[Rfam]
RNA sequence: AGGCAGCCUCUUUGCAAGUUGUAAUGGUAAAGAAGGUGUUAAACUGCUCGUAAAUUAAUGUCUUUUGCUCUUCAGACUUGCUGAGACUGUCUCUGAAGCUGGUCUAGUAAGCUCAAGUACAUU
Numbered sequence: 001a002g003g004c005a006g007c008c009u010c011u012u013u014g015c016a017a018g019u020u021g022u023a024a025u026g027g028u029a030a031a032g033a034a035g036g037u038g039u040u041a042a043a044c045u046g047c048u049c050g051u052a053a054a055u056u057a058a059u060g061u062c063u064u065u066u067g068c069u070c071u072u073c074a075g076a077c078u079u080g081c082u083g084a085g086a087c088u089g090u091c092u093c094u095g096a097a098g099c100u101g102g103u104c105u106a107g108u109a110a111g112c113u114c115a116a117g118u119a120c121a122u123u
Stems, first nucleotide, its partner, number of pairs: 002040004007036002009033007017025001062117003067112003074105005080099003085091002
About this RNA
The family of this 123-nucleotide RNA from Carpinus fangiana is "Small nucleolar RNA snoR77". Gene Ontology terms of the family: RNA processing and nucleolus. The match comes from Rfam's covariance-model search (119 bits).